[Rfam]
RNA sequence: GAUGAUGCAAGAAUGAUGAUUCAAUUAGAUGUGUGAAGGACGAAUGUCCAUAUGAACUCAAAAUCAUGAGGCUUAUUGAUACUCUGACUUGCUCAUC
Numbered sequence: 001g002a003u004g005a006u007g008c009a010a011g012a013a014u015g016a017u018g019a020u021u022c023a024a025u026u027a028g029a030u031g032u033g034u035g036a037a038g039g040a041c042g043a044a045u046g047u048c049c050a051u052a053u054g055a056a057c058u059c060a061a062a063a064u065c066a067u068g069a070g071g072c073u074u075a076u077u078g079a080u081a082c083u084c085u086g087a088c089u090u091g092c093u094c095a096u097c
Stems, first nucleotide, its partner, number of pairs: 001097005007092005

Shown here is a 97-nucleotide RNA from Carnegiea gigantea, a member of the family "Small nucleolar RNA Z266". Rfam 15.1 lists 719 matches to the family in 213 species. The family's consensus secondary structure was predicted with PFOLD. It is annotated as a C/D-box small nucleolar RNA. A reference for the family is Chen et al. (2003), "The high diversity of snoRNAs in plants: identification and comparative study of 120 snoRNA genes from Oryza sativa", Nucleic Acids Res.